This 83-nucleotide RNA from Allacma fusca belongs to the Rfam family "mir-184 microRNA precursor family". On this family, see Chen et al., Genes Dev 2005: "The developmental miRNA profiles of zebrafish as determined by small RNA cloning". Rfam links the family to the GO terms gene silencing by miRNA and RISC complex.

Nucleotides: 083
Stems, first nucleotide, its partner, number of pairs: 012072009021062003025058002029054002
Number, partner (000 for none) and nucleotide at each position: 001000u002000c003000u004000g005000u006000c007000u008000c009000g010000a011000c012072u013071c014070c015069u016068u017067a018066u019065c020064a021062u022061u023060c024000a025058c026057c027000u028000g029054u030053c031000c032000g033000g034000u035000g036000g037000u038000u039000u040000u041000g042000u043000u044000u045000c046000g047000u048000u049000u050000a051000c052000u053030g054029g055000a056000c057026g058025g059000a060023g061022a062021a063000c064020u065019g066018a067017u068016a069015a070014g071013g072012g073000c074000u075000u076000g077000a078000g079000c080000g081000g082000a083000u